The record is a 103-nucleotide sequence from Vagococcus fessus, which matches "TPP riboswitch aptamer (THI element)" in Rfam.
[Rfam]
RNA sequence: ACCAUCACAAAGGGGUGCCGUUUAGGCUGAGAUUGAGCGCAAGCUUGGACCCUUCGAACCUGAUUAAGUUGACACUUACGUAGGGAUUGUGAUGGAGCAGAGA
Numbered sequence: 001a002c003c004a005u006c007a008c009a010a011a012g013g014g015g016u017g018c019c020g021u022u023u024a025g026g027c028u029g030a031g032a033u034u035g036a037g038c039g040c041a042a043g044c045u046u047g048g049a050c051c052c053u054u055c056g057a058a059c060c061u062g063a064u065u066a067a068g069u070u071g072a073c074a075c076u077u078a079c080g081u082a083g084g085g086a087u088u089g090u091g092a093u094g095g096a097g098c099a100g101a102g103a
Stems, first nucleotide, its partner, number of pairs: 006091005011053004016047001017027003035046004059084004065078004
Overview
Pairs were carried over by alignment from the consensus structure, which is taken from published work. It scores 69 bits against the family's covariance model. About the family: Vitamin B(1) in its active form thiamin pyrophosphate (TPP) is an essential coenzyme that is synthesised by coupling of pyrimidine and thiazole moieties in bacteria.